[Rfam]
RNA sequence: CUGCACUAGUUGGGGAGCCAGCGGUGCCCUGUAACCUGCAAUCCGCUACAGCAGGAAUGAAUUCCCAACAUAGGAUCUGUCAUGUGUCGUCUGACACCGGUAAGCAGCGUUGACGAGCCGGUCUCGCGCAACGGAAACCCGUGAACCAUGUCAGGCGGGGAACCGAGCAGCAUUAAGCGGUGCUUUUCGUGUGCCGUGAGGGUGCCGGUUCUGAGCCGGCUGCCGGCGUAACGGGCAUAUGUCAGUUUUCGAAGUUGGGUGUGCAG
Numbered sequence: 001c002u003g004c005a006c007u008a009g010u011u012g013g014g015g016a017g018c019c020a021g022c023g024g025u026g027c028c029c030u031g032u033a034a035c036c037u038g039c040a041a042u043c044c045g046c047u048a049c050a051g052c053a054g055g056a057a058u059g060a061a062u063u064c065c066c067a068a069c070a071u072a073g074g075a076u077c078u079g080u081c082a083u084g085u086g087u088c089g090u091c092u093g094a095c096a097c098c099g100g101u102a103a104g105c106a107g108c109g110u111u112g113a114c115g116a117g118c119c120g121g122u123c124u125c126g127c128g129c130a131a132c133g134g135a136a137a138c139c140c141g142u143g144a145a146c147c148a149u150g151u152c153a154g155g156c157g158g159g160g161a162a163c164c165g166a167g168c169a170g171c172a173u174u175a176a177g178c179g180g181u182g183c184u185u186u187u188c189g190u191g192u193g194c195c196g197u198g199a200g201g202g203u204g205c206c207g208g209u210u211c212u213g214a215g216c217c218g219g220c221u222g223c224c225g226g227c228g229u230a231a232c233g234g235g236c237a238u239a240u241g242u243c244a245g246u247u248u249u250c251g252a253a254g255u256u257g258g259g260u261g262u263g264c265a266g
Stems, first nucleotide, its partner, number of pairs: 001266006009058003012030004017025003035055005064259006073250003079243001081241008092230002097226005104220002107216002115211008123200006129191002132189005139180004148173004156165003
The record is a 266-nucleotide RNA sequence from Firmicutes bacterium CAG:240, which matches "Bacterial large signal recognition particle RNA" in Rfam. NCBI's taxonomy places the organism under Bacteria, Bacillati, Bacillota. For this family Rfam cites "SRPDB: Signal Recognition Particle Database" (Rosenblad et al., Nucleic Acids Res, 2003). A search with the family's covariance model found it, with a score of 200 bits. It is annotated as a non-coding RNA gene. Rfam links the family to the GO terms SRP-dependent cotranslational protein targeting to membrane, signal sequence recognition and signal recognition particle, plasma membrane targeting.